This 128-nucleotide RNA from Dendrobium catenatum belongs to the Rfam family "U11 spliceosomal RNA". It is annotated as a spliceosomal small nuclear RNA. Pairs were carried over by alignment from the consensus structure, which is taken from published work. The literature on the family includes a 2004 paper in Proc Natl Acad Sci U S A by Schneider et al., "Identification of an evolutionarily divergent U11 small nuclear ribonucleoprotein particle in Drosophila".

RNA sequence: AAAAAGGGUCGGUUGGCUAUGUAUGCCACACACAUCUUUUAAUUGAUGGACGUUGUAUGGUUAUCAAGACAUAUGGGCCGACAUAAUUUAUGGAUGUUAUAGGGUUGACUUGCUUGGCUAAUCCUUGG
Numbered sequence: 001a002a003a004a005a006g007g008g009u010c011g012g013u014u015g016g017c018u019a020u021g022u023a024u025g026c027c028a029c030a031c032a033c034a035u036c037u038u039u040u041a042a043u044u045g046a047u048g049g050a051c052g053u054u055g056u057a058u059g060g061u062u063a064u065c066a067a068g069a070c071a072u073a074u075g076g077g078c079c080g081a082c083a084u085a086a087u088u089u090a091u092g093g094a095u096g097u098u099a100u101a102g103g104g105u106u107g108a109c110u111u112g113c114u115u116g117g118c119u120a121a122u123c124c125u126u127g128g
Stems, first nucleotide, its partner, number of pairs: 008082005014028004029052001033048004053076007100127005106121001108119001109117002